[Rfam]
RNA sequence: CAGCAACUGGUUGCUGGGAGCCAGGGGCGGUAGCGUG
Numbered sequence: 001c002a003g004c005a006a007c008u009g010g011u012u013g014c015u016g017g018g019a020g021c022c023a024g025g026g027g028c029g030g031u032a033g034c035g036u037g
Base pairs, nucleotide, nucleotide: 007024008023009022010021011020
The record is a 37-nucleotide sequence from Winslowiella iniecta, which matches "JUMPstart RNA" in Rfam. Pairs were carried over by alignment from the consensus structure, which is taken from published work. Rfam classes the family as a cis-regulatory element.